The family of this 69-nucleotide RNA from Hymenobacter sp. CRA2 is "DUF805 RNA".
RNA sequence: UGACCCUGUAGGCCAGCCAACAGGUAAAAAAACGGGGCGGGUCCGAAAAGCCUUACGAGUAGGUAAACC
Numbered sequence: 001u002g003a004c005c006c007u008g009u010a011g012g013c014c015a016g017c018c019a020a021c022a023g024g025u026a027a028a029a030a031a032a033c034g035g036g037g038c039g040g041g042u043c044c045g046a047a048a049a050g051c052c053u054u055a056c057g058a059g060u061a062g063g064u065a066a067a068c069c
Stems, first nucleotide, its partner, number of pairs: 006023004036052003043063002

Taxonomically the source falls in Hymenobacter (Bacteria, Pseudomonadati, Cytophagales, Hymenobacteraceae). Pairs were carried over by alignment from the consensus structure, which is taken from published work. A search with the family's covariance model found it, with a score of 60 bits.